[Rfam]
RNA sequence: CUCUUAUCAAGAGAGGUGGAGGGAAAAGGGCCCUAUGAAACCCGGCAACCAGUGAAUUAUCGCUAAGGUGCCAAUUCCUGCAGUAUAUUCUGCAAGAUAAGAG
Numbered sequence: 001c002u003c004u005u006a007u008c009a010a011g012a013g014a015g016g017u018g019g020a021g022g023g024a025a026a027a028g029g030g031c032c033c034u035a036u037g038a039a040a041c042c043c044g045g046c047a048a049c050c051a052g053u054g055a056a057u058u059a060u061c062g063c064u065a066a067g068g069u070g071c072c073a074a075u076u077c078c079u080g081c082a083g084u085a086u087a088u089u090c091u092g093c094a095a096g097a098u099a100a101g102a103g
Base pairs, nucleotide, nucleotide: 001103002102003101004100005099006098007097008096013043015042016041017040021033022032023031028079029078030077044072045071046070047069049068050067051064052063053062054061076095081092082091083090
RNA: SAM riboswitch aptamer (S box leader)